[Rfam]
RNA sequence: UAAUAUAGGCAAAGAGAGGGGUUGUGUUAACAACCCCUCUAGUAACAGCACCGUUUAAGACGGUGACAGAAAUCAAAUUAUUUUAAA
Numbered sequence: 001u002a003a004u005a006u007a008g009g010c011a012a013a014g015a016g017a018g019g020g021g022u023u024g025u026g027u028u029a030a031c032a033a034c035c036c037c038u039c040u041a042g043u044a045a046c047a048g049c050a051c052c053g054u055u056u057a058a059g060a061c062g063g064u065g066a067c068a069g070a071a072a073u074c075a076a077a078u079u080a081u082u083u084u085a086a087a
Stems, first nucleotide, its partner, number of pairs: 021034004050064006

This 87-nucleotide RNA from Tetragenococcus halophilus belongs to the Rfam family "RNA anti-toxin A".
The literature on the family includes a 2010 paper in Nucleic Acids Res by Fozo et al., "Abundance of type I toxin-antitoxin systems in bacteria: searches for new candidates and discovery of novel families".
The base pairs follow the family's consensus structure, which was predicted with RNAalifold.
Rfam classes the family as an antitoxin RNA.